Shown here is a 52-nucleotide sequence from Nakamurella endophytica, a member of the family "L31-Actinobacteria ribosomal protein leader". NCBI's taxonomy places the organism under Bacteria, Actinomycetota, Nakamurellales, Nakamurellaceae, Nakamurella. The match comes from Rfam's covariance-model search (45 bits).
[Rfam]
RNA sequence: CAGGCUCCGGUUCCCGUCGCACCGGUCCACGACCAGCGGCGACCCGGCGGCC
Numbered sequence: 001c002a003g004g005c006u007c008c009g010g011u012u013c014c015c016g017u018c019g020c021a022c023c024g025g026u027c028c029a030c031g032a033c034c035a036g037c038g039g040c041g042a043c044c045c046g047g048c049g050g051c052c
Stems, first nucleotide, its partner, number of pairs: 003052003007047004015041006